[Rfam]
RNA sequence: GGCACACAACCUGCUUUGGCCUGUGCUCAGGUAGCCAACGGCGGUUGCCCACCACGACAAAGACGUCGC
Numbered sequence: 001g002g003c004a005c006a007c008a009a010c011c012u013g014c015u016u017u018g019g020c021c022u023g024u025g026c027u028c029a030g031g032u033a034g035c036c037a038a039c040g041g042c043g044g045u046u047g048c049c050c051a052c053c054a055c056g057a058c059a060a061a062g063a064c065g066u067c068g069c
Base pairs, nucleotide, nucleotide: 030049031048032047033046034045035044036043
Record summary: The record is a 69-nucleotide RNA from Pseudomonas sp. URIL14HWK12:I9, which matches "narK RNA" in Rfam. The family's consensus secondary structure is taken from published work. Rfam classes the family as a cis-regulatory element. Taxonomically the source falls in Pseudomonas (Bacteria, Pseudomonadati, Gammaproteobacteria, Pseudomonadaceae). It scores 69 bits against the family's covariance model.